Source information: This 104-nucleotide RNA from Neobacillus piezotolerans belongs to the Rfam family "S10-Clostridia ribosomal protein leader". Rfam classes the family as a cis-regulatory leader. Lineage of the source: Bacteria > Bacillati > Bacillota > Bacilli > Neobacillus. On this family, see Eckert and Weinberg, BMC Microbiol 2020: "Discovery of 20 novel ribosomal leader candidates in bacteria and archaea".

[Rfam]
RNA sequence: UGACUGCGAUGAUGUGAGAGGUUGCUGACACACCCGGCCGCUUUGCCAUGGCGAGUGUGCAGGAGAUUUUCACGGAGAAUGUCUAUUUUCAAAAUAGGCGAAAA
Numbered sequence: 001u002g003a004c005u006g007c008g009a010u011g012a013u014g015u016g017a018g019a020g021g022u023u024g025c026u027g028a029c030a031c032a033c034c035c036g037g038c039c040g041c042u043u044u045g046c047c048a049u050g051g052c053g054a055g056u057g058u059g060c061a062g063g064a065g066a067u068u069u070u071c072a073c074g075g076a077g078a079a080u081g082u083c084u085a086u087u088u089u090c091a092a093a094a095u096a097g098g099c100g101a102a103a104a
Base pairs, nucleotide, nucleotide: 014073015072016071018070019069020068021067025062026061027060080103082101083100087098088097089096